[Rfam]
RNA sequence: GGGUCUAUAGCUCAGUGGUAGAGCGGUCGACUGCAGAUCGACAGGUCCCCGGAUCAACCCCGGGUGGGCCCU
Numbered sequence: 001g002g003g004u005c006u007a008u009a010g011c012u013c014a015g016u017g018g019u020a021g022a023g024c025g026g027u028c029g030a031c032u033g034c035a036g037a038u039c040g041a042c043a044g045g046u047c048c049c050c051g052g053a054u055c056a057a058c059c060c061c062g063g064g065u066g067g068g069c070c071c072u
Stems, first nucleotide, its partner, number of pairs: 001071007010024004026042005048064005
A member of the RNA family "tRNA" from Fonticula alba, 72 nucleotides long. Rfam classes the family as a transfer RNA. The literature on the family includes a 1993 paper in Trends Biochem Sci by Hou, "The tertiary structure of tRNA and the development of the genetic code". Pairs were carried over by alignment from the consensus structure, which is taken from published work. Taxonomically the source falls in Fonticula (Eukaryota, Opisthokonta, Rotosphaerida, Fonticulaceae).